This 82-nucleotide sequence from Nippostrongylus brasiliensis belongs to the Rfam family "mir-81 microRNA precursor family". Clan: mir-81 clan. On this family, see Lau et al., Science 2001: "An abundant class of tiny RNAs with probable regulatory roles in Caenorhabditis elegans".
RNA sequence: GUCUCUCACACAAUCGGUUUUCACCCUGGUCUGAGAGUGAACUAUGUCUGAGAUCAUCGUGAAAGCUAGUUGUGGUUGGACU
Dot-bracket structure: ........((((...(((((((((..((((((.(((((.....)).))).))))))..)))))))))...))))........